Description:
MIR6274 microRNA precursor family: a 105-nucleotide RNA sequence from Prunus dulcis. Taxonomically the source falls in Prunus (Eukaryota, Viridiplantae, Streptophytina, Rosales). It scores 81 bits against the family's covariance model. The family's consensus secondary structure was predicted with RNAalifold.
[Rfam]
RNA sequence: GAAUAGUACUUUUUGCUAUCUCAGACUAAUAACACAAUGACACGUGGGAUUACUUUUCCACGUGUUAUUGUGUUAUUGACCGGGAAUAGCAAAAUAUUGCUAUCU
Numbered sequence: 001g002a003a004u005a006g007u008a009c010u011u012u013u014u015g016c017u018a019u020c021u022c023a024g025a026c027u028a029a030u031a032a033c034a035c036a037a038u039g040a041c042a043c044g045u046g047g048g049a050u051u052a053c054u055u056u057u058c059c060a061c062g063u064g065u066u067a068u069u070g071u072g073u074u075a076u077u078g079a080c081c082g083g084g085a086a087u088a089g090c091a092a093a094a095u096a097u098u099g100c101u102a103u104c105u
Base pairs, nucleotide, nucleotide: 003103004102005101011094012093013092014091015090016089017088018087019086021084022083024081027078028077029076030075031074032073033072034071035070036069037068038067039066040065041064042063043062044061045060046059047058048057049056